[Rfam]
RNA sequence: CAGGUACAACAGGUGAUAGCUUGGAACUAGUAAUCCCAAGAGGUAAAGUCCGGGCUGCCGUAGGACACGGUUCCAUCUAACGGAUGGCCAUGGUAACAUGAGGGAUAGUGCAACAGAGAAUAGACCGCCUCGCAAGAGGUAAGGGUGAAACGGCGGGGUAAGAGCCCACCAGUCUCUUAGGCAACUAUGAGAGCUAUGUAAACCCAACCGCGCAGCAAGAAACAGAUGGUUAGCGUCCUACAUCGCUAUUGUUUCGCUAGAGGCCUAGAGUGAUCUAGGCAGUAGAUUAAUUAUCACUUCAUCCAGAACCCGGCUUACGUUGUACCUACUUC
Numbered sequence: 001c002a003g004g005u006a007c008a009a010c011a012g013g014u015g016a017u018a019g020c021u022u023g024g025a026a027c028u029a030g031u032a033a034u035c036c037c038a039a040g041a042g043g044u045a046a047a048g049u050c051c052g053g054g055c056u057g058c059c060g061u062a063g064g065a066c067a068c069g070g071u072u073c074c075a076u077c078u079a080a081c082g083g084a085u086g087g088c089c090a091u092g093g094u095a096a097c098a099u100g101a102g103g104g105a106u107a108g109u110g111c112a113a114c115a116g117a118g119a120a121u122a123g124a125c126c127g128c129c130u131c132g133c134a135a136g137a138g139g140u141a142a143g144g145g146u147g148a149a150a151c152g153g154c155g156g157g158g159u160a161a162g163a164g165c166c167c168a169c170c171a172g173u174c175u176c177u178u179a180g181g182c183a184a185c186u187a188u189g190a191g192a193g194c195u196a197u198g199u200a201a202a203c204c205c206a207a208c209c210g211c212g213c214a215g216c217a218a219g220a221a222a223c224a225g226a227u228g229g230u231u232a233g234c235g236u237c238c239u240a241c242a243u244c245g246c247u248a249u250u251g252u253u254u255c256g257c258u259a260g261a262g263g264c265c266u267a268g269a270g271u272g273a274u275c276u277a278g279g280c281a282g283u284a285g286a287u288u289a290a291u292u293a294u295c296a297c298u299u300c301a302u303c304c305a306g307a308a309c310c311c312g313g314c315u316u317a318c319g320u321u322g323u324a325c326c327u328a329c330u331u332c
Stems, first nucleotide, its partner, number of pairs: 002327009012298007020040005026034001028032001046316003050313005055215004068210005073087005088102001089100004103205002108203002110199003125144002127140005152170002155167003172194001173192004178187003219255004229246001263280007

Shown here is a 332-nucleotide RNA from Sulfuricurvum kujiense, a member of the family "Bacterial RNase P class A". Pairs were carried over by alignment from the consensus structure, which is taken from published work. The organism belongs to Sulfuricurvum, within Bacteria. The family's RNA type in Rfam is ribozyme. It scores 241 bits against the family's covariance model.